[Rfam]
RNA: mir-10 microRNA precursor family
Organism: Cyprinodon variegatus
RNA sequence: UGCUGCAAACCCGUAGAUCCGAACUUGUGCUGAAUGGCUACACAAGUUCGUGUCUAUAGGUAUGUGUCUU
Numbered sequence: 001u002g003c004u005g006c007a008a009a010c011c012c013g014u015a016g017a018u019c020c021g022a023a024c025u026u027g028u029g030c031u032g033a034a035u036g037g038c039u040a041c042a043c044a045a046g047u048u049c050g051u052g053u054c055u056a057u058a059g060g061u062a063u064g065u066g067u068c069u070u
Base pairs, nucleotide, nucleotide: 002068004066005065006064007063010060011059015055016054017053018052020050021049022048023047024046025045026044027043028042029041